[Rfam]
RNA sequence: CCCUCCUCGGCACUUCCCCCACCUCACUGCCCGGGUGCCCACAAGACUGUGGACAGUGAGGUAGAGGGAGUGCCGAGGAGGG
Numbered sequence: 001c002c003c004u005c006c007u008c009g010g011c012a013c014u015u016c017c018c019c020c021a022c023c024u025c026a027c028u029g030c031c032c033g034g035g036u037g038c039c040c041a042c043a044a045g046a047c048u049g050u051g052g053a054c055a056g057u058g059a060g061g062u063a064g065a066g067g068g069a070g071u072g073c074c075g076a077g078g079a080g081g082g
Base pairs, nucleotide, nucleotide: 001082002081003080004079005078006077007076008075009074010073011072012071013070014069015068016067017066019064021062022061023060024059025058026057027056028055029054030052031051032049033048034047